[Rfam]
Rfam assigns this 67-nucleotide RNA from Haemonchus contortus to the family "mir-60 microRNA precursor family". The base pairs follow the family's consensus structure, which was predicted with RNAalifold. The organism belongs to Haemonchus, within Eukaryota.
RNA sequence: UUCCUGAGCUGGAAACUGUCAUAAAAUCCUUUCUGAGCGAUAUUAUGCACAUUUUCUGGUUCAAGAC
Numbered sequence: 001u002u003c004c005u006g007a008g009c010u011g012g013a014a015a016c017u018g019u020c021a022u023a024a025a026a027u028c029c030u031u032u033c034u035g036a037g038c039g040a041u042a043u044u045a046u047g048c049a050c051a052u053u054u055u056c057u058g059g060u061u062c063a064a065g066a067c
Base pairs, nucleotide, nucleotide: 002066003065005063006062008060009059010058011057012056013055014054015052017049018048020047021046022045023044024043026041027040028039030037